[Rfam]
RNA sequence: UCUGCCUACAAAGGUGUGUGUAUGGUUCCAUGUCUUUGGAUAAAUGAGAAAUAUGGAAUUGGAGAAAUCUUAGGCCAGCUUGCUCCCUGCAGGCUAAAGAUCCACCUUUCCACAAAA
Numbered sequence: 001u002c003u004g005c006c007u008a009c010a011a012a013g014g015u016g017u018g019u020g021u022a023u024g025g026u027u028c029c030a031u032g033u034c035u036u037u038g039g040a041u042a043a044a045u046g047a048g049a050a051a052u053a054u055g056g057a058a059u060u061g062g063a064g065a066a067a068u069c070u071u072a073g074g075c076c077a078g079c080u081u082g083c084u085c086c087c088u089g090c091a092g093g094c095u096a097a098a099g100a101u102c103c104a105c106c107u108u109u110c111c112a113c114a115a116a117a
Stems, first nucleotide, its partner, number of pairs: 002048002006046001015044001017042003021038001025029001055110003077095007
Record summary: This 117-nucleotide RNA from Erinaceus europaeus belongs to the Rfam family "Small nucleolar RNA SNORA38". Rfam describes the family as follows. ACA38 is a member of the H/ACA class of snoRNA that guide the sites of modification of uridines to pseudouridines. It is annotated as an H/ACA-box small nucleolar RNA. The match comes from Rfam's covariance-model search (74 bits). Rfam 15.1 lists 628 matches to the family in 149 species.